[Rfam]
RNA sequence: CUGUAGUGAUAAUUUAGCCUCUUCUAGGCUUUGUCUGUGUAAUUGACGAGCCAAAGCCCAGAAAAGGCUAUAUGAAUCACUUCAC
Numbered sequence: 001c002u003g004u005a006g007u008g009a010u011a012a013u014u015u016a017g018c019c020u021c022u023u024c025u026a027g028g029c030u031u032u033g034u035c036u037g038u039g040u041a042a043u044u045g046a047c048g049a050g051c052c053a054a055a056g057c058c059c060a061g062a063a064a065a066g067g068c069u070a071u072a073u074g075a076a077u078c079a080c081u082u083c084a085c
Stems, first nucleotide, its partner, number of pairs: 012073002015070006027058004032053002035050002